[Rfam]
RNA sequence: AGAACGCCGCCAGAUAAACGCGAGGGUGAAUUCACCAGCAUGUUCAACAUGUGGUAGUCGCGCUGGGGGUUCUUUUUUUA
Numbered sequence: 001a002g003a004a005c006g007c008c009g010c011c012a013g014a015u016a017a018a019c020g021c022g023a024g025g026g027u028g029a030a031u032u033c034a035c036c037a038g039c040a041u042g043u044u045c046a047a048c049a050u051g052u053g054g055u056a057g058u059c060g061c062g063c064u065g066g067g068g069g070u071u072c073u074u075u076u077u078u079u080a
Base pairs, nucleotide, nucleotide: 001075002074003073006070007069008067010066011065012064013063019062020061021060022059023058025036026035027034028033039051040050041049042048
Overview
Rfam assigns this 80-nucleotide sequence to the family "DUF3800-VII RNA". Rfam's curators put it in the seed alignment. Pairs were carried over by alignment from the consensus structure, which is taken from published work. By type it is a small RNA.